[Rfam]
Nucleotides: 134
Stems, first nucleotide, its partner, number of pairs: 003056004017044006024037001026035001084115004089110002092107001
Number, partner (000 for none) and nucleotide at each position: 001000a002000a003056g004055c005054a006053g007000u008000a009000u010000u011000u012000a013000c014000a015000c016000u017044a018043c019042a020041a021040u022039a023000u024037g025000a026035c027000u028000g029000u030000u031000a032000a033000g034000u035026g036000c037024u038000u039022u040021g041020u042019u043018g044017u045000u046000g047000u048000u049000c050000c051000c052000c053006c054005u055004g056003c057000u058000c059000a060000a061000a062000a063000u064000a065000a066000a067000g068000c069000c070000c071000u072000u073000u074000c075000u076000u077000a078000a079000c080000u081000a082000c083000a084115c085114c086113u087112g088000u089110u090109u091000u092107c093000u094000u095000u096000a097000a098000g099000c100000c101000u102000g103000u104000g105000g106000a107092g108000c109090a110089a111000c112087c113086a114085g115084g116000g117000a118000c119000a120000c121000u122000u123000g124000g125000u126000c127000u128000u129000a130000a131000a132000c133000a134000u